[Rfam]
RNA: Singlet oxygen resistance RNA X
RNA sequence: UACCGUCGCAUAUGCGGUCUAUCAUAUGCACCUCCCUGUUGGACUUUGGCCGAGCCCCGCGCUCGGCCUUUUUU
Numbered sequence: 001u002a003c004c005g006u007c008g009c010a011u012a013u014g015c016g017g018u019c020u021a022u023c024a025u026a027u028g029c030a031c032c033u034c035c036c037u038g039u040u041g042g043a044c045u046u047u048g049g050c051c052g053a054g055c056c057c058c059g060c061g062c063u064c065g066g067c068c069u070u071u072u073u074u
Base pairs, nucleotide, nucleotide: 008029009028010027011026012025013024014023048068049067050066051065052064053063054062055061